RNA sequence: UGUUGUUGUAUUCAACUGUAUUCACGAUGUGAAAUAGGGAAUUACACUAUUUUUAAAACGUAAAGUGAAUUAAUUAACAUAAUAGACUACU
Dot-bracket structure: ..(((((((.((.((.((.((((((..((((((((((.........)))))))....)))....)))))))).)))).)))))))......
Numbered sequence: 001u002g003u004u005g006u007u008g009u010a011u012u013c014a015a016c017u018g019u020a021u022u023c024a025c026g027a028u029g030u031g032a033a034a035u036a037g038g039g040a041a042u043u044a045c046a047c048u049a050u051u052u053u054u055a056a057a058a059c060g061u062a063a064a065g066u067g068a069a070u071u072a073a074u075u076a077a078c079a080u081a082a083u084a085g086a087c088u089a090c091u
Stems, first nucleotide, its partner, number of pairs: 003085007011077002014075002017072002020070006028060003031053007